Small nucleolar RNA snoR27: an 82-nucleotide RNA sequence from Olea europaea. The match comes from Rfam's covariance-model search (43 bits).
[Rfam]
Nucleotides: 082
Base pairs, nucleotide, nucleotide: 001082002081003080004079006077007076
Number, partner (000 for none) and nucleotide at each position: 001082a002081u003080u004079g005000g006077a007076u008000c009000a010000a011000u012000g013000a014000u015000a016000u017000u018000g019000u020000a021000u022000u023000a024000c025000c026000u027000a028000u029000c030000a031000g032000a033000g034000a035000u036000u037000c038000c039000c040000a041000g042000c043000a044000a045000g046000g047000a048000u049000c050000u051000u052000a053000a054000u055000a056000u057000u058000a059000c060000u061000u062000u063000c064000u065000a066000a067000c068000u069000u070000a071000c072000u073000g074000a075000g076007a077006u078000g079004c080003a081002g082001u
Record summary
NCBI's taxonomy places the organism under Eukaryota, Streptophytina, Spermatophyta, Mesangiospermae, Olea europaea.